[Rfam]
RNA sequence: UCCUGGCGGAUGCUCGAAUAUGCACUUGCCUUUGGUUGAUGCUGCUCGUCGGCAAGGUCGAAGCAGCAUUGG
Numbered sequence: 001u002c003c004u005g006g007c008g009g010a011u012g013c014u015c016g017a018a019u020a021u022g023c024a025c026u027u028g029c030c031u032u033u034g035g036u037u038g039a040u041g042c043u044g045c046u047c048g049u050c051g052g053c054a055a056g057g058u059c060g061a062a063g064c065a066g067c068a069u070u071g072g
Base pairs, nucleotide, nucleotide: 006023007022008021010019011018025066027065028064029063031061034058037055
This 72-nucleotide RNA from Orthohepacivirus hominis belongs to the Rfam family "Hepatitis C virus stem-loop SL2531 and SL2549AU". It is annotated as a cis-regulatory element. The sequence is in the family's curated seed alignment.